mir-8517 microRNA precursor family: a 104-nucleotide RNA sequence from Plutella xylostella. It scores 119 bits against the family's covariance model.
[Rfam]
RNA sequence: UUAGUGGGCGCUUUAGCUAUUGAACUGUUCUGUCACUCUCUGACAACAAUUUGUUCUUUGACAGAGAGGGACAAAACAGUUCAAUAGCUAAAGCGUCCACUAAC
Numbered sequence: 001u002u003a004g005u006g007g008g009c010g011c012u013u014u015a016g017c018u019a020u021u022g023a024a025c026u027g028u029u030c031u032g033u034c035a036c037u038c039u040c041u042g043a044c045a046a047c048a049a050u051u052u053g054u055u056c057u058u059u060g061a062c063a064g065a066g067a068g069g070g071a072c073a074a075a076a077c078a079g080u081u082c083a084a085u086a087g088c089u090a091a092a093g094c095g096u097c098c099a100c101u102a103a104c
Base pairs, nucleotide, nucleotide: 001103002102003101004100005099006098011093012092013091014090015089016088017087018086019085020084021083022082023081024080025079026078027077028076029065030064031063032062033061034060035059045055046054047053048052
Its family is annotated with miRNA-mediated post-transcriptional gene silencing and RISC complex in the Gene Ontology.
The base pairs follow the family's consensus structure, which was predicted with RNAalifold.